[Rfam]
The record is a 114-nucleotide RNA sequence from Clostridium sp. CAG:411, which matches "drum RNA" in Rfam.
The sequence is in the family's curated seed alignment.
RNA sequence: UGGUGUUGAAGCAAUUGACUGUGUCGGUAAGCAGCCAACUGUGGAGCCUGCCCUUGGGUUAUGCGAUAACCUCAAACCGAAUAGGUUCUUCGGAACUGAAGGAAAACGCUUUAU
Numbered sequence: 001u002g003g004u005g006u007u008g009a010a011g012c013a014a015u016u017g018a019c020u021g022u023g024u025c026g027g028u029a030a031g032c033a034g035c036c037a038a039c040u041g042u043g044g045a046g047c048c049u050g051c052c053c054u055u056g057g058g059u060u061a062u063g064c065g066a067u068a069a070c071c072u073c074a075a076a077c078c079g080a081a082u083a084g085g086u087u088c089u090u091c092g093g094a095a096c097u098g099a100a101g102g103a104a105a106a107c108g109c110u111u112u113a114u
Base pairs, nucleotide, nucleotide: 002048003047004046011042012041013040015038016037017036019034020033021032022031024080025079026078027077063109064108065107084097085096086095087094
The base pairs follow the family's consensus structure, which is taken from published work. Taxonomically the source falls in Clostridium (Bacteria, Bacillota, Clostridia, Clostridiaceae). Firmicutes, Bacteroidetes (1 example), Proteobacteria (2 examples), Spirochaetes (2 examples).